[Rfam]
RNA sequence: AUUUCUAAAUCGCUGAAACCAAAAUAUGGUACGGGGGAACCAUUUUCAUGGGUUAUAUUCAUAUACCCUUGGGGUGAAUCCUUAAUUAGGUAGGGCUACUCAAAGGCCCGAAUCCGACAGCUAACCUCGUAAGCGUUUAUGAGAAGGAAG
Numbered sequence: 001a002u003u004u005c006u007a008a009a010u011c012g013c014u015g016a017a018a019c020c021a022a023a024a025u026a027u028g029g030u031a032c033g034g035g036g037g038a039a040c041c042a043u044u045u046u047c048a049u050g051g052g053u054u055a056u057a058u059u060c061a062u063a064u065a066c067c068c069u070u071g072g073g074g075u076g077a078a079u080c081c082u083u084a085a086u087u088a089g090g091u092a093g094g095g096c097u098a099c100u101c102a103a104a105g106g107c108c109c110g111a112a113u114c115c116g117a118c119a120g121c122u123a124a125c126c127u128c129g130u131a132a133g134c135g136u137u138u139a140u141g142a143g144a145a146g147g148a149a150g
Stems, first nucleotide, its partner, number of pairs: 011135004018030003031130006041071002072115003080090003093109004